[Rfam]
RNA sequence: ACUUAUCAGCUCACAUCACAGAUCAGAUCCUGGAUAUGAUCUGAUCUGUGAUGUGAGCUGAUAAGU
Numbered sequence: 001a002c003u004u005a006u007c008a009g010c011u012c013a014c015a016u017c018a019c020a021g022a023u024c025a026g027a028u029c030c031u032g033g034a035u036a037u038g039a040u041c042u043g044a045u046c047u048g049u050g051a052u053g054u055g056a057g058c059u060g061a062u063a064a065g066u
Base pairs, nucleotide, nucleotide: 001066002065003064004063005062006061007060008059009058010057011056012055013054014053015052016051017050018049019048020047021046022045023044024043025042026041027040028039029038
Source information: This 66-nucleotide RNA from Bos taurus belongs to the Rfam family "mir-2329 microRNA precursor family". NCBI's taxonomy places the organism under Eukaryota, Bilateria, Amniota, Artiodactyla, Bos. The family's consensus secondary structure was predicted with RNAalifold. Its family is annotated with RISC complex and miRNA-mediated post-transcriptional gene silencing in the Gene Ontology. The family has 2 seed sequences and 6 matches in Rfam 15.1.